[Rfam]
RNA sequence: CGAUGGUGGCCUUUUUGGGGACAGAUGUCCGUGUCGCGCGUUUCUGAGUCGGUGGUGUGGCCGGUGAUUCAAACCCUGACCCCGGGCU
Dot-bracket structure: ...(.(.((..(.....(((......((((..(((((((...............)))))))..).)))......))).).))).)...

The record is an 88-nucleotide RNA sequence from Aotus nancymaae, which matches "NoRC associated RNA, pRNA" in Rfam.
The family has 23 seed sequences and 354 matches in Rfam 15.1.
Rfam classes the family as a non-coding RNA gene.